[Rfam]
RNA sequence: CCUAGUGGCUAAGUAGUAGUGCCGCAGGUAGCGAUUUUAAAGUUUACCUGCACACGACUGCUUAACUAAGUGG
Numbered sequence: 001c002c003u004a005g006u007g008g009c010u011a012a013g014u015a016g017u018a019g020u021g022c023c024g025c026a027g028g029u030a031g032c033g034a035u036u037u038u039a040a041a042g043u044u045u046a047c048c049u050g051c052a053c054a055c056g057a058c059u060g061c062u063u064a065a066c067u068a069a070g071u072g073g
Stems, first nucleotide, its partner, number of pairs: 001073002006068002010064008019055001024051007